[Rfam]
RNA sequence: CACUAGAGUCACAUCCUGACAGCUCUUGUCCGGGUGUGCUAGAGUCCCCACAAAGAACCUGCUGGUCUUGAUGCACUGGCGAGGGCAAUCAGCCCCCAGAAGUGCCCAGGUCAGAAACAUGC
Numbered sequence: 001c002a003c004u005a006g007a008g009u010c011a012c013a014u015c016c017u018g019a020c021a022g023c024u025c026u027u028g029u030c031c032g033g034g035u036g037u038g039c040u041a042g043a044g045u046c047c048c049c050a051c052a053a054a055g056a057a058c059c060u061g062c063u064g065g066u067c068u069u070g071a072u073g074c075a076c077u078g079g080c081g082a083g084g085g086c087a088a089u090c091a092g093c094c095c096c097c098a099g100a101a102g103u104g105c106c107c108a109g110g111u112c113a114g115a116a117a118c119a120u121g122c
Base pairs, nucleotide, nucleotide: 002045003044004043007040008039010038011037012036013035014034015033018030019029020028021027062114063113064112065111066110067109068108070106074104075103076102077101081097083095084094085093086092
RNA: Small nucleolar RNA SNORA3/SNORA45 family